Rfam assigns this 84-nucleotide sequence from Synaphobranchus kaupii to the family "mir-194 microRNA precursor family".
The family's consensus secondary structure was predicted with RNAalifold.
A search with the family's covariance model found it, with a score of 78 bits.
RNA sequence: UGGUGCUUGCUGGUUGUAACAGCAACUCCAUGUGGAAAGUUACUAAUACGUUCCAGUGGAGCUGCUGUUAUCUGCAGAGAGACA
Numbered sequence: 001u002g003g004u005g006c007u008u009g010c011u012g013g014u015u016g017u018a019a020c021a022g023c024a025a026c027u028c029c030a031u032g033u034g035g036a037a038a039g040u041u042a043c044u045a046a047u048a049c050g051u052u053c054c055a056g057u058g059g060a061g062c063u064g065c066u067g068u069u070a071u072c073u074g075c076a077g078a079g080a081g082a083c084a
Base pairs, nucleotide, nucleotide: 010077011076012075016071017070018069019068020067021066022065023064026061027060028059029058030057031056033055034054035053